[Rfam]
Shown here is a 117-nucleotide RNA from Lampropedia aestuarii, a member of the family "ALIL pseudoknot". The family's consensus secondary structure is taken from published work.

RNA sequence: CGCGUUUUUCGCGCAGGCGGAGCUCGACCGCCGAUUGAAGUCUUGAAGAACUACAUCGACCGCCACCGUGAUGGCUACGGGGUAGAGCCCAUCUGCCGUGUGUUGCAGAUGGCCCCG
Numbered sequence: 001c002g003c004g005u006u007u008u009u010c011g012c013g014c015a016g017g018c019g020g021a022g023c024u025c026g027a028c029c030g031c032c033g034a035u036u037g038a039a040g041u042c043u044u045g046a047a048g049a050a051c052u053a054c055a056u057c058g059a060c061c062g063c064c065a066c067c068g069u070g071a072u073g074g075c076u077a078c079g080g081g082g083u084a085g086a087g088c089c090c091a092u093c094u095g096c097c098g099u100g101u102g103u104u105g106c107a108g109a110u111g112g113c114c115c116c117g
Stems, first nucleotide, its partner, number of pairs: 016032005078117005089112002092109005098103001
It scores 104 bits against the family's covariance model.
The family has 26 seed sequences and 2,146 matches in Rfam 15.1.